[Rfam]
RNA sequence: UUUAAAUACGUAGUGUUAUCCGAUAUAGGUCUGGAAAGAUGGUUCAGAUGUUUCUACCGCACGCCGUUCAGUUGCGACUAUUGGGUGUAUGCAAAGAGCG
Numbered sequence: 001u002u003u004a005a006a007u008a009c010g011u012a013g014u015g016u017u018a019u020c021c022g023a024u025a026u027a028g029g030u031c032u033g034g035a036a037a038g039a040u041g042g043u044u045c046a047g048a049u050g051u052u053u054c055u056a057c058c059g060c061a062c063g064c065c066g067u068u069c070a071g072u073u074g075c076g077a078c079u080a081u082u083g084g085g086u087g088u089a090u091g092c093a094a095a096g097a098g099c100g
Base pairs, nucleotide, nucleotide: 018086019085020084021083022082023081024080025079029049030048031047032046033045034044035043058076059075060074061073
The record is a 100-nucleotide RNA sequence from bacterium 1XD42-54, which matches "Purine riboswitch aptamer" in Rfam. The base pairs follow the family's consensus structure, which is taken from published work. A search with the family's covariance model found it, with a score of 50 bits.